[Rfam]
RNA sequence: AUCAUCAGUAGUGGUUAAUACUUACUCGUAUUAAUUACAAUUACUUUUAUAGAAACCUACGACCCUUCCACUUGGACUUUUCCGUUUGGAUUUUUCCAUCUUCUGGAUUUCCCAGUCGAUGGGGAUUUUCGGACUAGUUAAUACUGGAGCUCGAGUGGUUGGUUCCGACAAUAACCCAUAGCUGAACGGUUUUUGACCACCUCCAAACAAGGUGGGCACAAGCUCCGUUUCGUUUCCGGUUUCUUAGAUUAUAGUCUUCUAUGAGGGGAUCAUCUGUAAAGUUUUGGGCUUAGGCCCUAGCAGGUGGAGUUGCUCGAUUGCAGAGAGCUGUAUAAUGCAGCUUGAGAGUUUGAAAUCGGGCCUCCCUUCAUGGAAGUACAUUC
Numbered sequence: 001a002u003c004a005u006c007a008g009u010a011g012u013g014g015u016u017a018a019u020a021c022u023u024a025c026u027c028g029u030a031u032u033a034a035u036u037a038c039a040a041u042u043a044c045u046u047u048u049a050u051a052g053a054a055a056c057c058u059a060c061g062a063c064c065c066u067u068c069c070a071c072u073u074g075g076a077c078u079u080u081u082c083c084g085u086u087u088g089g090a091u092u093u094u095u096c097c098a099u100c101u102u103c104u105g106g107a108u109u110u111c112c113c114a115g116u117c118g119a120u121g122g123g124g125a126u127u128u129u130c131g132g133a134c135u136a137g138u139u140a141a142u143a144c145u146g147g148a149g150c151u152c153g154a155g156u157g158g159u160u161g162g163u164u165c166c167g168a169c170a171a172u173a174a175c176c177c178a179u180a181g182c183u184g185a186a187c188g189g190u191u192u193u194u195g196a197c198c199a200c201c202u203c204c205a206a207a208c209a210a211g212g213u214g215g216g217c218a219c220a221a222g223c224u225c226c227g228u229u230u231c232g233u234u235u236c237c238g239g240u241u242u243c244u245u246a247g248a249u250u251a252u253a254g255u256c257u258u259c260u261a262u263g264a265g266g267g268g269a270u271c272a273u274c275u276g277u278a279a280a281g282u283u284u285u286g287g288g289c290u291u292a293g294g295c296c297c298u299a300g301c302a303g304g305u306g307g308a309g310u311u312g313c314u315c316g317a318u319u320g321c322a323g324a325g326a327g328c329u330g331u332a333u334a335a336u337g338c339a340g341c342u343u344g345a346g347a348g349u350u351u352g353a354a355a356u357c358g359g360g361c362c363u364c365c366c367u368u369c370a371u372g373g374a375a376g377u378a379c380a381u382u383c
Base pairs, nucleotide, nucleotide: 008044009043010042011041012039013038014035015034016033017032018031019030020029051244052243053242054241055240056239057238064162065161068158069157070156071155072154073153074152075151077149078148079147080146084134085133086132087131088130089129093125094124095123096122097121098120099119103115104114105113106112136145137144138143184230185229186228187227188226189225193221194220195219197215198214199213200212201211256376257375258374259373260372262370263369264368265367266366267365268364269363270307271306272305273304274303275302276301277300309362313360314359315358316357317356319354321352322351323350324349325343326342327341328340329339330338331337

Description:
A member of the RNA family "Small nucleolar RNA snR37" from Zygosaccharomyces rouxii, 383 nucleotides long. The organism belongs to Zygosaccharomyces, within Eukaryota. By type it is an H/ACA-box small nucleolar RNA. Clan: SNORA64 clan. The family's consensus secondary structure was predicted with WAR.